[Rfam]
RNA sequence: UUGCACUUGUAUCAUAGGCUUAUCUUAGUAUGGUAAGUUUGGCCUGAGCCAGGUGCAUAAAACGAAAGCUGUUAGAUUAGCAGCAGCUAGACAAUUGCAGAGAUGGAUCCACUGGUGAAUGGCUUUUGUUGCUAGUUGCCUAUUGAUUUCAUCUCAUAUUU
Numbered sequence: 001u002u003g004c005a006c007u008u009g010u011a012u013c014a015u016a017g018g019c020u021u022a023u024c025u026u027a028g029u030a031u032g033g034u035a036a037g038u039u040u041g042g043c044c045u046g047a048g049c050c051a052g053g054u055g056c057a058u059a060a061a062a063c064g065a066a067a068g069c070u071g072u073u074a075g076a077u078u079a080g081c082a083g084c085a086g087c088u089a090g091a092c093a094a095u096u097g098c099a100g101a102g103a104u105g106g107a108u109c110c111a112c113u114g115g116u117g118a119a120u121g122g123c124u125u126u127u128g129u130u131g132c133u134a135g136u137u138g139c140c141u142a143u144u145g146a147u148u149u150c151a152u153c154u155c156a157u158a159u160u161u
Base pairs, nucleotide, nucleotide: 002057003056004055005054006053009049010048012047013046016045017044018043019042020041022039024037025036026035100155101154102153103152104151105150106149107148118137119136120134121133122132